[Rfam]
RNA sequence: ACGCCCCCACCGGGAGGGCGUCAGGUGGUGCCGGAUAUCCGGCACGGCCGGGCCCGCUGCCGGAUGGUCUUCCGAACCGAGGCGUCAUG
Numbered sequence: 001a002c003g004c005c006c007c008c009a010c011c012g013g014g015a016g017g018g019c020g021u022c023a024g025g026u027g028g029u030g031c032c033g034g035a036u037a038u039c040c041g042g043c044a045c046g047g048c049c050g051g052g053c054c055c056g057c058u059g060c061c062g063g064a065u066g067g068u069c070u071u072c073c074g075a076a077c078c079g080a081g082g083c084g085u086c087a088u089g
Base pairs, nucleotide, nucleotide: 001085002084003083004082005081010063011062012061013060015058016057018055020053021052027048028045029044030043031042032041033040034039065079066078067077